The family of this 52-nucleotide RNA sequence from Ruegeria sp. TM1040 is "ffh sRNA".
A reference for the family is Meyer et al. (2009), "Identification of candidate structured RNAs in the marine organism 'Candidatus Pelagibacter ubique'", BMC Genomics.
It is annotated as a small RNA.

[Rfam]
RNA sequence: UUUGCCAGGGAUCGCCCUCCACCAGCGCGUUGCGCCCGUGGGGGCAAACCUU
Numbered sequence: 001u002u003u004g005c006c007a008g009g010g011a012u013c014g015c016c017c018u019c020c021a022c023c024a025g026c027g028c029g030u031u032g033c034g035c036c037c038g039u040g041g042g043g044g045c046a047a048a049c050c051u052u
Stems, first nucleotide, its partner, number of pairs: 016044007025035004
Dot-bracket structure: ...............(((((((..((((...))))..)))))))........